[Rfam]
mir-290 microRNA precursor family: a 69-nucleotide sequence from Nyctereutes procyonoides. For this family Rfam cites "Embryonic stem cell-specific MicroRNAs" (Houbaviy et al., Dev Cell, 2003). Its family is annotated with miRNA-mediated post-transcriptional gene silencing and RISC complex in the Gene Ontology. Its Rfam clan is "mir-290 clan".
RNA sequence: GUGGUACUCAAAUGUGGAAGCACUCUUCAGGUUUACUUGGUGAAAAGUGCUACAAUAUUUGGGUGUUGC
Numbered sequence: 001g002u003g004g005u006a007c008u009c010a011a012a013u014g015u016g017g018a019a020g021c022a023c024u025c026u027u028c029a030g031g032u033u034u035a036c037u038u039g040g041u042g043a044a045a046a047g048u049g050c051u052a053c054a055a056u057a058u059u060u061g062g063g064u065g066u067u068g069c
Stems, first nucleotide, its partner, number of pairs: 004066009014056002017053001019051006026044003